[Rfam]
RNA sequence: UGUUGGACGCAACACUGGGAGUGACUGAAUAAACUUACUGGCAUAUAGCUGGUUAAGGUGAUGUGAUACAGGUGGUGCUGCUGCUUCGGAAGAAGUAGAACCGAUCAACCAAUCGGAUCACAGGCAGAGAUGAUUUCUAAACUGUAGAAAUGCCCAUCUCUUGUUGGUAUACAGGAACCCAACCUCCCCUCUU
Number, nucleotide and partner (000 for none) at each position: 001u014002g013003u012004u011005g010006g000007a000008c000009g000010c005011a004012a003013c002014a001015c000016u000017g188018g187019g186020a185021g184022u000023g000024a059025c058026u000027g000028a000029a000030u000031a000032a000033a000034c000035u000036u000037a053038c052039u051040g050041g049042c048043a000044u000045a000046u000047a000048g042049c041050u040051g039052g038053u037054u000055a000056a000057g000058g025059u024060g000061a000062u122063g121064u120065g119066a118067u117068a000069c080070a079071g078072g000073u111074g110075g109076u108077g000078c071079u070080g069081c098082u097083g096084c095085u094086u093087c000088g000089g000090a000091a000092g000093a086094a085095g084096u083097a082098g081099a000100a000101c116102c115103g114104a113105u112106c000107a000108a076109c075110c074111a073112a105113u104114c103115g102116g101117a067118u066119c065120a064121c063122a062123g000124g000125c000126a161127g160128a159129g158130a157131u156132g155133a000134u150135u149136u148137c147138u000139a000140a000141a000142c174143u173144g172145u171146a000147g137148a136149a135150a134151u000152g000153c000154c000155c132156a131157u130158c129159u128160c127161u126162u000163g183164u182165u181166g180167g179168u000169a000170u000171a145172c144173a143174g142175g000176a000177a000178c000179c167180c166181a165182a164183c163184c021185u020186c019187c018188c017189c000190u000191c000192u000193u000